[Rfam]
RNA: SAM riboswitch aptamer (S box leader)
Organism: Bryocella elongata
RNA sequence: AUUUCAUGAAGAGUGGUUGAGGGACGAGCCCUUUGACGCCACGACAACCGGACAGCUUGUUGGUACCGGUGUCAACUCUCUCCCGAGCGAUCGGGGAACAUGAGAU
Numbered sequence: 001a002u003u004u005c006a007u008g009a010a011g012a013g014u015g016g017u018u019g020a021g022g023g024a025c026g027a028g029c030c031c032u033u034u035g036a037c038g039c040c041a042c043g044a045c046a047a048c049c050g051g052a053c054a055g056c057u058u059g060u061u062g063g064u065a066c067c068g069g070u071g072u073c074a075a076c077u078c079u080c081u082c083c084c085g086a087g088c089g090a091u092c093g094g095g096g097a098a099c100a101u102g103a104g105a106u
Base pairs, nucleotide, nucleotide: 001106002105003104004103005102006101007100008099013042014041015040016039017038021031022030023029026080027079028078043073044072045071046070048069049068052064053063077098082095083094084093085092086091